[Rfam]
RNA: Streptomyces sRNA 4677
Organism: Streptomyces sp. SAT1
RNA sequence: CGACGCGGUCCAGCGCGUGAUCAAUGCUUGAAAGGACCUGGGGGAAGACCUACCGACCAACCCACCCCGCCUCGCCAGUCCUCCCCGGCCCGCGCGCCGUACCCCGUCACCCGGAAGAGUGGCAACGCCCAACUCGGCUGGAUUUUCGCCCGGUUCGCUGGCAUAUGCUCGCCGCGACCGCACCACCACCGCAGACAUGCGACGGCCCCCGGCCGGGACUGGCAUCCCGAUCGAGGGCCUGACCACCGAGGAAGCAAGGACCUUCCCG
Numbered sequence: 001c002g003a004c005g006c007g008g009u010c011c012a013g014c015g016c017g018u019g020a021u022c023a024a025u026g027c028u029u030g031a032a033a034g035g036a037c038c039u040g041g042g043g044g045a046a047g048a049c050c051u052a053c054c055g056a057c058c059a060a061c062c063c064a065c066c067c068c069g070c071c072u073c074g075c076c077a078g079u080c081c082u083c084c085c086c087g088g089c090c091c092g093c094g095c096g097c098c099g100u101a102c103c104c105c106g107u108c109a110c111c112c113g114g115a116a117g118a119g120u121g122g123c124a125a126c127g128c129c130c131a132a133c134u135c136g137g138c139u140g141g142a143u144u145u146u147c148g149c150c151c152g153g154u155u156c157g158c159u160g161g162c163a164u165a166u167g168c169u170c171g172c173c174g175c176g177a178c179c180g181c182a183c184c185a186c187c188a189c190c191g192c193a194g195a196c197a198u199g200c201g202a203c204g205g206c207c208c209c210c211g212g213c214c215g216g217g218a219c220u221g222g223c224a225u226c227c228c229g230a231u232c233g234a235g236g237g238c239c240u241g242a243c244c245a246c247c248g249a250g251g252a253a254g255c256a257a258g259g260a261c262c263u264u265c266c267c268g
Stems, first nucleotide, its partner, number of pairs: 007247003016094004107122004112117001137173001139171003204239005210233002215228004250266005